[Rfam]
RNA sequence: AAUUGUCUUUGGGGCAGGGUGAGAUUCCCAACCGGCGGUACAGUCCGCGAGCCUUCGGGCAUGAAUUGGUGAGAUUCCAAUACCGACAGUAGAGUCUGGAUGAGAAAAGACAGUG
Numbered sequence: 001a002a003u004u005g006u007c008u009u010u011g012g013g014g015c016a017g018g019g020u021g022a023g024a025u026u027c028c029c030a031a032c033c034g035g036c037g038g039u040a041c042a043g044u045c046c047g048c049g050a051g052c053c054u055u056c057g058g059g060c061a062u063g064a065a066u067u068g069g070u071g072a073g074a075u076u077c078c079a080a081u082a083c084c085g086a087c088a089g090u091a092g093a094g095u096c097u098g099g100a101u102g103a104g105a106a107a108a109g110a111c112a113g114u115g
Base pairs, nucleotide, nucleotide: 003113004112005111006110007109008108009107010106017029018028019027031095032094033085034084035048036047037046038045043083044082053059065081066080067079068078069077087098088097089096
RNA: FMN riboswitch aptamer (RFN element)